[Rfam]
RNA sequence: GGUUGGGCGCAAGCUUUCAAGGUGGUUUCUUCAGGGGUGAGAAGAA
Numbered sequence: 001g002g003u004u005g006g007g008c009g010c011a012a013g014c015u016u017u018c019a020a021g022g023u024g025g026u027u028u029c030u031u032c033a034g035g036g037g038u039g040a041g042a043a044g045a046a
Stems, first nucleotide, its partner, number of pairs: 003020003006015003027046006

Rfam assigns this 46-nucleotide RNA sequence from Carnobacterium maltaromaticum to the family "Na+ riboswitch aptamer (DUF1646)". The family's consensus secondary structure is taken from published work. Rfam links the family to the GO terms sodium ion binding and regulation of gene expression. The literature on the family includes a 2022 paper in Nat Chem Biol by White et al., "Na(+) riboswitches regulate genes for diverse physiological processes in bacteria".